[Rfam]
RNA sequence: GCAUGGAUGAAUUCUGCACUAGCUUUCCUCGGUAGCUGCUGCAGUCAGACACCAUGCCAGAGCAAAUUCCUUUUUCACUGUGCCUGGUGUGCUUUUCCGUGGGAAUGGGCAUGCCCUUGGAAGGGGAAUACAG
Numbered sequence: 001g002c003a004u005g006g007a008u009g010a011a012u013u014c015u016g017c018a019c020u021a022g023c024u025u026u027c028c029u030c031g032g033u034a035g036c037u038g039c040u041g042c043a044g045u046c047a048g049a050c051a052c053c054a055u056g057c058c059a060g061a062g063c064a065a066a067u068u069c070c071u072u073u074u075u076c077a078c079u080g081u082g083c084c085u086g087g088u089g090u091g092c093u094u095u096u097c098c099g100u101g102g103g104a105a106u107g108g109g110c111a112u113g114c115c116c117u118u119g120g121a122a123g124g125g126g127a128a129u130a131c132a133g
Stems, first nucleotide, its partner, number of pairs: 001057006014044005067128003070124004076120001086115009